Record summary: A member of the RNA family "Mammalian CPEB3 ribozyme" from Crocodylus porosus, 78 nucleotides long. NCBI's taxonomy places the organism under Eukaryota, Teleostomi, Crocodylia, Longirostres, Crocodylus. For this family Rfam cites "Autocatalytic RNA cleavage in the human beta-globin pre-mRNA promotes transcription termination" (Teixeira et al., Nature, 2004). Rfam's curators write: The mammalian CPEB3 ribozyme is a self cleaving RNA located in the second intron of the CPEB3 gene which belongs to a family of genes regulating messenger RNA polyadenylation. Its family is annotated with RNA nuclease activity in the Gene Ontology. The family's consensus secondary structure is taken from published work.
RNA sequence: AUCUUCAAAAAAGCCACAGCAGAAGCGCGCACGGCACGGCACGGCCUGUCAGAUUCCAGCGAGUCUGCAAAUUCUGCU
Dot-bracket structure: ............[[[..((((((((.(............).)]]]....(((((((....)))))))....)))))))